[Rfam]
RNA sequence: AUACUACCAAACCCUAUCUCCACCUCCUCGUGGUGACCGCUGAGAGCUCUUUCUUAACGAAAAGCUGCAGACGGAGAAGG
Numbered sequence: 001a002u003a004c005u006a007c008c009a010a011a012c013c014c015u016a017u018c019u020c021c022a023c024c025u026c027c028u029c030g031u032g033g034u035g036a037c038c039g040c041u042g043a044g045a046g047c048u049c050u051u052u053c054u055u056a057a058c059g060a061a062a063a064g065c066u067g068c069a070g071a072c073g074g075a076g077a078a079g080g
Base pairs, nucleotide, nucleotide: 013080014079015078017076019074020073022034023033024032045066046065047064048063050061051060053059